[Rfam]
A member of the RNA family "c-di-GMP-I riboswitch aptamer" from [Clostridium] fimetarium, 87 nucleotides long.
Nucleotides: 087
Base pairs, nucleotide, nucleotide: 012037013036018031019030020029021028022027040081041080042079043078045077046076047075048072049071050070055066056065057064058063
Number, partner (000 for none) and nucleotide at each position: 001000a002000a003000u004000u005000g006000a007000u008000a009000a010000a011000g012037g013036c014000a015000a016000a017000c018031u019030u020029g021028u022027u023000g024000a025000a026000a027022a028021a029020u030019a031018a032000c033000g034000a035000c036013g037012c038000a039000a040081a041080g042079c043078u044000a045077u046076g047075a048072g049071u050070c051000u052000a053000a054000g055066g056065u057064g058063u059000g060000a061000a062000u063058a064057c065056g066055c067000u068000a069000a070050g071049a072048u073000a074000g075047u076046c077045a078043a079042g080041c081040u082000a083000c084000c085000a086000a087000a
Source information: A search with the family's covariance model found it, with a score of 84 bits.